Annotation
This 91-nucleotide RNA from Equus caballus belongs to the Rfam family "Small nucleolar RNA snoR27". Rfam classes the family as a C/D-box small nucleolar RNA. Clan: snR68 clan. The match comes from Rfam's covariance-model search (43 bits). The base pairs follow the family's consensus structure, which was predicted with WAR.
[Rfam]
RNA sequence: UGUGGUUUCAUGAUUAUUUUUAAAAUGAGCUAUCUUUUAGAAAUAUAUAGUAAAUAUUUGCAGAAAAAAGUUACAAUAGUUGAGAUCUACU
Numbered sequence: 001u002g003u004g005g006u007u008u009c010a011u012g013a014u015u016a017u018u019u020u021u022a023a024a025a026u027g028a029g030c031u032a033u034c035u036u037u038u039a040g041a042a043a044u045a046u047a048u049a050g051u052a053a054a055u056a057u058u059u060g061c062a063g064a065a066a067a068a069a070g071u072u073a074c075a076a077u078a079g080u081u082g083a084g085a086u087c088u089a090c091u
Stems, first nucleotide, its partner, number of pairs: 002090004007085001